[Rfam]
RNA sequence: AUGCGUUAAAGGGGUGCGAUAUGUAAAUAGUAACCAAGCAAUUGGUGAAAGGGACAGUCGCCGAAAUACUUAAAGUAUUGGGGCUAUAUUUAAUAGAUAUAGUCCUGUCAUUAGAAGAUUGCCCAAUUUUCUAAUGGAGCACUUUCUCGCGU
Numbered sequence: 001a002u003g004c005g006u007u008a009a010a011g012g013g014g015u016g017c018g019a020u021a022u023g024u025a026a027a028u029a030g031u032a033a034c035c036a037a038g039c040a041a042u043u044g045g046u047g048a049a050a051g052g053g054a055c056a057g058u059c060g061c062c063g064a065a066a067u068a069c070u071u072a073a074a075g076u077a078u079u080g081g082g083g084c085u086a087u088a089u090u091u092a093a094u095a096g097a098u099a100u101a102g103u104c105c106u107g108u109c110a111u112u113a114g115a116a117g118a119u120u121g122c123c124c125a126a127u128u129u130u131c132u133a134a135u136g137g138a139g140c141a142c143u144u145u146c147u148c149g150c151g152u
Base pairs, nucleotide, nucleotide: 008145009144010143011142016061017060018059019058020057023055024054033046034045035044036043037042065079066078067077068076069075070074080106081105082104083103084102085101086100087099088098089097090096108137109136110135111134112133113132114131115130116129117128118127
Lysine riboswitch aptamer: a 152-nucleotide RNA sequence from Alkalicella caledoniensis. It scores 74 bits against the family's covariance model. Riboswitches are metabolite binding domains within certain messenger RNAs that serve as precision sensors for their corresponding targets. NCBI's taxonomy places the organism under Bacteria, Bacillati, Clostridia, Eubacteriales, Alkalicella.